sul1 RNA: a 53-nucleotide RNA sequence from Sphingobium phenoxybenzoativorans. The organism belongs to Sphingobium, within Bacteria. The family's consensus secondary structure is taken from published work. The family's RNA type in Rfam is riboswitch.
RNA sequence: GUUGGACCCGGCAUGCCGGGUGGCUAGUCCGGGCGCCUAACCCCCGGUAACCG
Numbered sequence: 001g002u003u004g005g006a007c008c009c010g011g012c013a014u015g016c017c018g019g020g021u022g023g024c025u026a027g028u029c030c031g032g033g034c035g036c037c038u039a040a041c042c043c044c045c046g047g048u049a050a051c052c053g
Stems, first nucleotide, its partner, number of pairs: 006021006029047005